[Rfam]
RNA sequence: AUACAAAUUAAGAACAAAAACAUCAACUGUUUUUCUUUAAGGUAAGUCGCUAUCACAAACUUUGGCGAGGGAGUGAGCGACUUCUUUUUACUUUGUU
Numbered sequence: 001a002u003a004c005a006a007a008u009u010a011a012g013a014a015c016a017a018a019a020a021c022a023u024c025a026a027c028u029g030u031u032u033u034u035c036u037u038u039a040a041g042g043u044a045a046g047u048c049g050c051u052a053u054c055a056c057a058a059a060c061u062u063u064g065g066c067g068a069g070g071g072a073g074u075g076a077g078c079g080a081c082u083u084c085u086u087u088u089u090a091c092u093u094u095g096u097u
Stems, first nucleotide, its partner, number of pairs: 005038003016034007046081005053076004
Dot-bracket structure: ....(((........(((((((.....))))))).))).......(((((..((((................)))))))))................
RNA: ctRNA
Organism: Staphylococcus aureus